Background
Rfam assigns this 47-nucleotide RNA sequence from Nematostella vectensis to the family "Guanidine-II riboswitch aptamer (mini-ykkC)". The source organism's lineage runs through Eukaryota, Opisthokonta, Metazoa, Hexacorallia and Nematostella. From the family's description: Simpler in structure and has fewer highly conserved nucleotide positions than the ykkC-yxkD leader. Despite this each of its two stem-loop structures directly bind free guanidine. Therefore, mini-ykkC RNA motif represents a distinct class of guanidine-sensing RNAs.

RNA sequence: CGGACGGGACGACCCGUACAUCAAACAGCCCGGACGGGACGACCCGU
Dot-bracket structure: .(.(((((....))))).)..............(((((....)))))
Numbered sequence: 001c002g003g004a005c006g007g008g009a010c011g012a013c014c015c016g017u018a019c020a021u022c023a024a025a026c027a028g029c030c031c032g033g034a035c036g037g038g039a040c041g042a043c044c045c046g047u
Stems, first nucleotide, its partner, number of pairs: 002019001004017005034047005
Record summary:
The base pairs follow the family's consensus structure, which is taken from published work.